Rfam assigns this 133-nucleotide RNA from Microcebus murinus to the family "Small nucleolar RNA SNORA9". It is one of the family's seed sequences. Rfam describes the family as follows. ACA9 is a member of the H/ACA class of snoRNA that guide the sites of modification of uridines to pseudouridines. Its Rfam clan is "SNORA9 clan". The family has 36 seed sequences and 1,202 matches in Rfam 15.1.

RNA sequence: UAGCAAGCCUCCAGCGUGCCUGGGUCUGCGGUGACCCUGUGCAUUCCUACAGCGCUUGCCAGAACAGCUUUGAAACGGUUUGAGGCCUUGCCCUGCUCCAUCCAGAGCAAGGUUAUAGAAAUUUCAGACAAUU
Numbered sequence: 001u002a003g004c005a006a007g008c009c010u011c012c013a014g015c016g017u018g019c020c021u022g023g024g025u026c027u028g029c030g031g032u033g034a035c036c037c038u039g040u041g042c043a044u045u046c047c048u049a050c051a052g053c054g055c056u057u058g059c060c061a062g063a064a065c066a067g068c069u070u071u072g073a074a075a076c077g078g079u080u081u082g083a084g085g086c087c088u089u090g091c092c093c094u095g096c097u098c099c100a101u102c103c104a105g106a107g108c109a110a111g112g113u114u115a116u117a118g119a120a121a122u123u124u125c126a127g128a129c130a131a132u133u
Base pairs, nucleotide, nucleotide: 003059004058005057006056007055008054017043018042019041022037023036024035025034026033071126072125073124074123075122086112087111088110089109090108091107093105094104095103